THF (Tetrahydrofolate) riboswitch aptamer: a 103-nucleotide RNA from Clostridiales bacterium S5-A14a. For this family Rfam cites "The structure of a tetrahydrofolate-sensing riboswitch reveals two ligand binding sites in a single aptamer" (Trausch et al., Structure, 2011). The source organism's lineage runs through Bacteria, Bacillati, Bacillota, Peptostreptococcales and Anaerovoracaceae. Rfam's curators write: Tetrahydrofolate (THF) riboswitch was first reported for Ames et al. as an RNA motif in 5' untranslated (5'-UTR)regions of folate transport and biosynthesis genes in Firmicutes genomes. Its family is annotated with tetrahydrofolate metabolic process in the Gene Ontology.

RNA sequence: GGUAGAGUAAAUAUUGUGCGUUAAGUGUUAUGGGAUGGGAUGUUGCCCAUAGACGAAGGCGUGUCCGACAAAAGCAGCUACUUUGCGAUUGCAAGCGUUUGCC
Numbered sequence: 001g002g003u004a005g006a007g008u009a010a011a012u013a014u015u016g017u018g019c020g021u022u023a024a025g026u027g028u029u030a031u032g033g034g035a036u037g038g039g040a041u042g043u044u045g046c047c048c049a050u051a052g053a054c055g056a057a058g059g060c061g062u063g064u065c066c067g068a069c070a071a072a073a074g075c076a077g078c079u080a081c082u083u084u085g086c087g088a089u090u091g092c093a094a095g096c097g098u099u100u101g102c103c
Stems, first nucleotide, its partner, number of pairs: 001103005010090001013089006020081002025054002028052007038096001041093002058079003